[Rfam]
RNA sequence: CGGAUAACACUAGCUAAGGGAAUUCGGCAAAUUAGCUCCGUAACUUCGGGAUAAGGAGUGCCUGCCUUGUGAGAGGCAGGUCGCAGUGACAAGGGAGCUCUAACUGUCUAAUAACAACAUAGCGGAUCGCGAACCCGAAAGGGCUAGUACGAUCCGUGAAUCCUGCCCAGUGCAGGUACCUGAAACCCCGGUUCAACGGGAUGAAGGGCCUGUCAACGGCGGGGGUAACUAUAACCCUCUUAAGGUAGCGUAGUACCUUGCCGCUUAAUUGGCGGCUUGCAUGAAUGGAUCAAUGAGAGUUCCACUGUCCCUAGCUAGAAUCCGGUGAAGCUUACAUUCCAGUGCAGAGUCUGGAGA
Number, nucleotide and partner (000 for none) at each position: 001c324002g323003g322004a321005u000006a000007a000008c000009a000010c318011u317012a316013g315014c314015u313016a312017a000018g310019g309020g308021a000022a000023u000024u000025c000026g000027g000028c000029a000030a000031a000032u000033u000034a000035g059036c058037u057038c056039c055040g000041u000042a000043a000044c049045u000046u000047c000048g000049g044050g000051a000052u000053a000054a000055g039056g038057a037058g036059u035060g081061c080062c079063u078064g077065c076066c075067u074068u073069g000070u000071g000072a000073g068074a067075g066076g065077c064078a063079g062080g061081u060082c086083g000084c000085a000086g082087u000088g000089a000090c000091a000092a000093g000094g303095g302096a301097g300098c299099u298100c297101u295102a294103a000104c000105u119106g118107u117108c000109u000110a000111a000112u000113a000114a000115c000116a000117a107118c106119a105120u000121a000122g157123c156124g155125g154126a153127u152128c151129g150130c147131g000132a000133a000134c143135c142136c141137g000138a000139a000140a000141g136142g135143g134144c000145u000146a000147g130148u000149a000150c129151g128152a127153u126154c125155c124156g123157u122158g000159a000160a290161u289162c288163c287164u000165g220166c219167c218168c000169a000170g217171u216172g213173c212174a211175g210176g209177u000178a000179c208180c207181u206182g000183a000184a000185a000186c000187c200188c199189c198190g197191g000192u000193u000194c000195a000196a000197c190198g189199g188200g187201a000202u000203g000204a000205a000206g181207g180208g179209c176210c175211u174212g173213u172214c000215a000216a171217c170218g167219g166220c165221g239222g238223g237224g236225g235226u234227a000228a000229c000230u000231a000232u000233a000234a226235c225236c224237c223238u222239c221240u244241u000242a000243a000244g240245g000246u000247a000248g000249c000250g000251u000252a000253g000254u000255a000256c000257c000258u000259u000260g276261c275262c274263g273264c272265u271266u000267a000268a000269u000270u000271g265272g264273c263274g262275g261276c260277u000278u000279g000280c000281a000282u000283g000284a000285a000286u000287g163288g162289a161290u160291c000292a000293a000294u102295g101296a000297g100298a099299g098300u097301u096302c095303c094304a000305c000306u000307g000308u020309c019310c018311c000312u016313a015314g014315c013316u012317a011318g010319a000320a000321u004322c003323c002324g001325g000326u000327g000328a000329a000330g000331c000332u000333u000334a000335c000336a000337u000338u355339c354340c353341a352342g351343u000344g000345c000346a000347g000348a000349g000350u000351c342352u341353g340354g339355a338356g000357a000
The family of this 357-nucleotide part of an RNA from Candidatus Methanogaster sp. is "Archaeal large subunit ribosomal RNA". The match comes from Rfam's covariance-model search (2941 bits). The organism belongs to Candidatus Methanogaster, within Archaea. The base pairs follow the family's consensus structure, which is taken from published work. The literature on the family includes a 2002 paper in BMC Bioinformatics by Cannone et al., "The comparative RNA web (CRW) site: an online database of comparative sequence and structure information for ribosomal, intron, and other RNAs".